Shown here is a 108-nucleotide sequence from Plutella xylostella, a member of the family "mir-8517 microRNA precursor family". A search with the family's covariance model found it, with a score of 89 bits. The base pairs follow the family's consensus structure, which was predicted with RNAalifold.
RNA sequence: UUAUAGGACGUUUUAGCUAUUGAACUGUUUGGUCCAUCUCUAACUCAGAACUAAUUUUUCUUUGACAGAGAGGAACAAAACAGUUCAAUAGCUAAAAUGACCUAUAAC
Numbered sequence: 001u002u003a004u005a006g007g008a009c010g011u012u013u014u015a016g017c018u019a020u021u022g023a024a025c026u027g028u029u030u031g032g033u034c035c036a037u038c039u040c041u042a043a044c045u046c047a048g049a050a051c052u053a054a055u056u057u058u059u060c061u062u063u064g065a066c067a068g069a070g071a072g073g074a075a076c077a078a079a080a081c082a083g084u085u086c087a088a089u090a091g092c093u094a095a096a097a098u099g100a101c102c103u104a105u106a107a108c
Base pairs, nucleotide, nucleotide: 001107002106003105004104005103006102011097012096013095014094015093016092017091018090019089020088021087022086023085024084025083026082027081028080029069030068032066033065034064049059050058